[Rfam]
RNA sequence: UAAAGGGGAAGUUCGAUUAAGUUCAGUUCGCCCCGUCCUGGGGCAACAUCGAACUACCUCCCGUCCUGGGAG
Numbered sequence: 001u002a003a004a005g006g007g008g009a010a011g012u013u014c015g016a017u018u019a020a021g022u023u024c025a026g027u028u029c030g031c032c033c034c035g036u037c038c039u040g041g042g043g044c045a046a047c048a049u050c051g052a053a054c055u056a057c058c059u060c061c062c063g064u065c066c067u068g069g070g071a072g
Stems, first nucleotide, its partner, number of pairs: 011054007030044005058072005